RNA sequence: AUCUGUCCUCGGUAGUGGUCUUCGGGUGCCAUCAAGCGCCCCCGCGGACCUCGAUCGAAGACCGGU
Numbered sequence: 001a002u003c004u005g006u007c008c009u010c011g012g013u014a015g016u017g018g019u020c021u022u023c024g025g026g027u028g029c030c031a032u033c034a035a036g037c038g039c040c041c042c043c044g045c046g047g048a049c050c051u052c053g054a055u056c057g058a059a060g061a062c063c064g065g066u
Stems, first nucleotide, its partner, number of pairs: 001066003005062003009058005017050005023044004028039002
The record is a 66-nucleotide RNA sequence from Tessaracoccus antarcticus, which matches "Actino-pnp RNA" in Rfam. By type it is a cis-regulatory element. The family's consensus secondary structure is taken from published work. It scores 59 bits against the family's covariance model.